[Rfam]
RNA sequence: CUCUUAUCAAGAGAGGUGGAGGGACUGUGCCCUAUGAAACCCGGCAACCGUCAGACUAACUGAAAUGGUGCCAAUUCCUGCAAAGCAUAAGCUUUGAAAGAUGAGAG
Numbered sequence: 001c002u003c004u005u006a007u008c009a010a011g012a013g014a015g016g017u018g019g020a021g022g023g024a025c026u027g028u029g030c031c032c033u034a035u036g037a038a039a040c041c042c043g044g045c046a047a048c049c050g051u052c053a054g055a056c057u058a059a060c061u062g063a064a065a066u067g068g069u070g071c072c073a074a075u076u077c078c079u080g081c082a083a084a085g086c087a088u089a090a091g092c093u094u095u096g097a098a099a100g101a102u103g104a105g106a107g
Base pairs, nucleotide, nucleotide: 001107002106003105004104005103006102007101008100013042015041016040017039021032022031023030026080027079029077043072044071045070046069048068049067051063052062053061076099081096082095083094084093085092086091
RNA: SAM riboswitch aptamer (S box leader)